[Rfam]
RNA sequence: GUCUCUCAGACACCGAAGUCGGACCCUGAGAGAACGGCAUCACAGGUCCGACACGGGGGAACCACUUAUGGCCGAAAGGCCUUGGGGUGAAGCCUGAAUCUUCAGGCCGGGCUCUCCUGCCCGAAUCCGACAGCUGACCUCGCAGGUAAGAAGGAGAUGCAUA
Numbered sequence: 001g002u003c004u005c006u007c008a009g010a011c012a013c014c015g016a017a018g019u020c021g022g023a024c025c026c027u028g029a030g031a032g033a034a035c036g037g038c039a040u041c042a043c044a045g046g047u048c049c050g051a052c053a054c055g056g057g058g059g060a061a062c063c064a065c066u067u068a069u070g071g072c073c074g075a076a077a078g079g080c081c082u083u084g085g086g087g088u089g090a091a092g093c094c095u096g097a098a099u100c101u102u103c104a105g106g107c108c109g110g111g112c113u114c115u116c117c118u119g120c121c122c123g124a125a126u127c128c129g130a131c132a133g134c135u136g137a138c139c140u141c142g143c144a145g146g147u148a149a150g151a152a153g154g155a156g157a158u159g160c161a162u163a
Base pairs, nucleotide, nucleotide: 012147013146014145018052019051020050021049022048023047024046025045054142055141056140057139058138063084064083085128086127087126093106094105095104096103109122110121111120112119

The family of this 163-nucleotide sequence from Schaalia cardiffensis is "c-di-AMP riboswitch aptamer (ydaO/yuaA leader)". The match comes from Rfam's covariance-model search (73 bits). Rfam links the family to the GO terms regulation of gene expression and cyclic-di-AMP binding.